[Rfam]
RNA sequence: GUGUAUCUGGGUGUAGAUAGUGUUCAGCACCACGGACAGACAUGUGUAUCUGUGUGUGGAUAGUGUUCAGCACCAAGGACAGUCAUGUGUGUCU
Numbered sequence: 001g002u003g004u005a006u007c008u009g010g011g012u013g014u015a016g017a018u019a020g021u022g023u024u025c026a027g028c029a030c031c032a033c034g035g036a037c038a039g040a041c042a043u044g045u046g047u048a049u050c051u052g053u054g055u056g057u058g059g060a061u062a063g064u065g066u067u068c069a070g071c072a073c074c075a076a077g078g079a080c081a082g083u084c085a086u087g088u089g090u091g092u093c094u
Base pairs, nucleotide, nucleotide: 004085007082008081009080018075020073021072022071023070024069026067027066028065029064030063032061034055036053037052038051039050040049042047
RNA: mir-2060 microRNA precursor family